Source information:
This 265-nucleotide RNA from Falsibacillus pallidus belongs to the Rfam family "Bacterial large signal recognition particle RNA". By type it is a non-coding RNA gene. Taxonomically the source falls in Falsibacillus (Bacteria, Bacillota, Bacilli, Caryophanales). Pairs were carried over by alignment from the consensus structure, which is taken from published work. From the family's description: The signal recognition particle (SRP) is a universally conserved ribonucleoprotein involved in the co-translational targeting of proteins to membranes. On this family, see Rosenblad et al., Nucleic Acids Res 2003: "SRPDB: Signal Recognition Particle Database".

[Rfam]
RNA sequence: CCGUGCUAGGCGGGGAAAUAGCGGAGCCCUGUACUCGCAAUCCGCUCCAGCGAGGCUGAAUCCCUUCCCGAGGCUGGUUAACUGUAGGGUCUGCCUCAAGUAAGUGGUGUUGACGUCUGGGUCCUGCGCAAUGAGAAUCCAUGAACCAUGUCAGGUCCGGAAGGAAGCAGCAUUAAGUGGUCCCUCUCAUGUGCCGCAGGGCAGCCUGGGCCGAGCUAACUGCUUGGGUAACGCUUAUGGUUGCCAGUCGACGGAAGGUGCACGG
Number, nucleotide and partner (000 for none) at each position: 001c265002c264003g263004u262005g261006c260007u000008a000009g057010g056011c055012g030013g029014g028015g027016a000017a000018a000019u023020a000021g000022c000023g019024g000025a000026g000027c015028c014029c013030u012031g000032u000033a000034c054035u053036c052037g051038c050039a000040a000041u000042c000043c000044g000045c000046u000047c000048c000049a000050g038051c037052g036053a035054g034055g011056c010057u009058g000059a000060a000061u000062c000063c258064c257065u256066u255067c254068c253069c000070g000071a000072g249073g248074c247075u246076g245077g000078u000079u243080a242081a241082c240083u239084g238085u237086a236087g235088g234089g000090u000091c000092u230093g229094c000095c000096u227097c226098a225099a224100g223101u222102a000103a000104g220105u219106g217107g216108u215109g000110u000111u000112g000113a000114c000115g211116u210117c209118u208119g207120g206121g205122u204123c200124c199125u198126g197127c196128g195129c191130a190131a000132u189133g188134a187135g186136a185137a000138u000139c180140c179141a178142u177143g000144a000145a000146c000147c000148a173149u172150g171151u170152c000153a000154g000155g000156u165157c164158c163159g000160g000161a000162a000163g158164g157165a156166a000167g000168c000169a000170g151171c150172a149173u148174u000175a000176a000177g142178u141179g140180g139181u000182c000183c000184c000185u136186c135187u134188c133189a132190u130191g129192u000193g000194c000195c128196g127197c126198a125199g124200g123201g000202c000203a000204g122205c121206c120207u119208g118209g117210g116211c115212c000213g000214a000215g108216c107217u106218a000219a105220c104221u000222g101223c100224u099225u098226g097227g096228g000229u093230a092231a000232c000233g000234c088235u087236u086237a085238u084239g083240g082241u081242u080243g079244c000245c076246a075247g074248u073249c072250g000251a000252c000253g068254g067255a066256a065257g064258g063259u000260g006261c005262a004263c003264g002265g001